RNA: Small nucleolar RNA SNORA41
RNA sequence: UUCCACAGCUACUGGUCUGCAACUGUCUUCAUGGUAGCAGUUGCGGCAUUCCUCUGUGGGAAAGAAACUGUUACGUGAUUAAACACCUCUUUCUUAGCAAAACAGAAAGUGGGCAUAUGUGUGACAGACAAGA
Number, nucleotide and partner (000 for none) at each position: 001u000002u000003c059004c058005a057006c056007a000008g000009c000010u000011a000012c000013u000014g000015g000016u000017c046018u045019g044020c043021a042022a041023c040024u039025g038026u000027c000028u000029u000030c000031a000032u000033g000034g000035u000036a000037g000038c025039a024040g023041u022042u021043g020044c019045g018046g017047c000048a000049u000050u000051c000052c000053u000054c000055u000056g006057u005058g004059g003060g000061a000062a000063a000064g000065a000066a000067a000068c000069u000070g000071u000072u000073a122074c121075g120076u119077g118078a000079u000080u000081a000082a000083a000084c000085a000086c113087c112088u111089c109090u108091u107092u106093c105094u104095u000096a000097g000098c000099a000100a000101a000102a000103c000104a094105g093106a092107a091108a090109g089110u000111g088112g087113g086114c000115a000116u000117a000118u077119g076120u075121g074122u073123g000124a000125c000126a000127g000128a000129c000130a000131a000132g000133a000